[Rfam]
RNA sequence: CGGACACCCCCUUUACAACGGAUCGUCCGGCACGUUCCUGCCGGUGAAGAGGAGAGAAGC
Numbered sequence: 001c002g003g004a005c006a007c008c009c010c011c012u013u014u015a016c017a018a019c020g021g022a023u024c025g026u027c028c029g030g031c032a033c034g035u036u037c038c039u040g041c042c043g044g045u046g047a048a049g050a051g052g053a054g055a056g057a058a059g060c
Stems, first nucleotide, its partner, number of pairs: 009051001011049005027044006
RNA: msiK RNA